Rfam assigns this 110-nucleotide RNA from Staphylococcus epidermidis to the family "drum RNA". From the family's description: Firmicutes, Bacteroidetes (1 example), Proteobacteria (2 examples), Spirochaetes (2 examples). The sequence is in the family's curated seed alignment. The family's consensus secondary structure is taken from published work.

RNA sequence: UGGCGUUGAUAUUCUAGGCUGUGUCACUAAGCAGUGUAGAAAGUAGCCAUCGAAAGGGUAGCAUUCGCCUCAAAGUGACUAGAACUAAGGUUCGAAAGAAAAUGCAAAGA
Numbered sequence: 001u002g003g004c005g006u007u008g009a010u011a012u013u014c015u016a017g018g019c020u021g022u023g024u025c026a027c028u029a030a031g032c033a034g035u036g037u038a039g040a041a042a043g044u045a046g047c048c049a050u051c052g053a054a055a056g057g058g059u060a061g062c063a064u065u066c067g068c069c070u071c072a073a074a075g076u077g078a079c080u081a082g083a084a085c086u087a088a089g090g091u092u093c094g095a096a097a098g099a100a101a102a103u104g105c106a107a108a109g110a
Stems, first nucleotide, its partner, number of pairs: 001049004012041005018035005024078004061105003082093004